[Rfam]
RNA sequence: GAUUUUCCGGGGUGUACGUUACUUCCUUCACUGUGUUGACCGAUCAAGUAAUUUAAUUACGGGAUUGACUUCCUUUAUUCAUCAAAGCCAGCCUUUUCACGAGGACGCUAGUAUGAGUAAAUAGCCGAGCCCACCUGCCAUACCGCGGGUUCAAUACUAACGGAAGCUAAACGGCACUUCAGAUGAUCU
Numbered sequence: 001g002a003u004u005u006u007c008c009g010g011g012g013u014g015u016a017c018g019u020u021a022c023u024u025c026c027u028u029c030a031c032u033g034u035g036u037u038g039a040c041c042g043a044u045c046a047a048g049u050a051a052u053u054u055a056a057u058u059a060c061g062g063g064a065u066u067g068a069c070u071u072c073c074u075u076u077a078u079u080c081a082u083c084a085a086a087g088c089c090a091g092c093c094u095u096u097u098c099a100c101g102a103g104g105a106c107g108c109u110a111g112u113a114u115g116a117g118u119a120a121a122u123a124g125c126c127g128a129g130c131c132c133a134c135c136u137g138c139c140a141u142a143c144c145g146c147g148g149g150u151u152c153a154a155u156a157c158u159a160a161c162g163g164a165a166g167c168u169a170a171a172c173g174g175c176a177c178u179u180c181a182g183a184u185g186a187u188c189u
Stems, first nucleotide, its partner, number of pairs: 002187003006183002009180007017173003033157007040149002061132003065128003069124002075120007087108002092104004
The family of this 189-nucleotide sequence from Loigolactobacillus rennini is "6S / SsrS RNA".
Rfam's curators write: E. coli 6S RNA was the first non coding RNA to be sequenced, but its function was unknown until recently.
NCBI's taxonomy places the organism under Bacteria, Bacilli, Lactobacillales, Lactobacillaceae, Loigolactobacillus rennini.
For this family Rfam cites "6S RNA regulates E. coli RNA polymerase activity" (Wassarman and Storz, Cell, 2000).